A member of the RNA family "Small nucleolar RNA SNORD66" from Maylandia zebra, 78 nucleotides long.
The match comes from Rfam's covariance-model search (82 bits).
Gene Ontology terms of the family: RNA processing and nucleolus.
Rfam describes the family as follows. snoRNA HBII-142 is part of the C/D family of snoRNAs.
A reference for the family is Huttenhofer et al. (2001), "RNomics: an experimental approach that identifies 201 candidates for novel, small, non-messenger RNAs in mouse", EMBO J.
The base pairs follow the family's consensus structure, which was predicted with RNAalifold.

RNA sequence: CUCUAGUGAUGACUUCUUUUUAGUGCCACGUGUCUGGGCCACUGAACUUUUUGUGAUGGUAUUGAGGAACUGAAGGAG
Dot-bracket structure: ((((......................................................................))))